This 87-nucleotide sequence from Rattus norvegicus belongs to the Rfam family "mir-350 microRNA precursor family". Its family is annotated with miRNA-mediated post-transcriptional gene silencing and RISC complex in the Gene Ontology.
[Rfam]
Nucleotides: 087
Stems, first nucleotide, its partner, number of pairs: 002085006009079003013075002015072006026061006032054005
Number, partner (000 for none) and nucleotide at each position: 001000g002085c003084u004083c005082c006081u007080a008000c009079a010078a011077g012000a013075g014074u015072a016071a017070a018069g019068u020067g021000c022000a023000c024000g025000u026061g027060c028059u029058u030057u031056g032054g033053g034052a035051c036050a037000g038000u039000g040000a041000g042000g043000a044000a045000a046000a047000u048000a049000a050036u051035g052034u053033u054032c055000a056031c057030a058029a059028a060027g061026c062000c063000c064000a065000u066000a067020c068019a069018c070017u071016u072015u073000c074014a075013c076000c077011c078010u079009u080007u081006a082005g083004g084003a085002g086000a087000g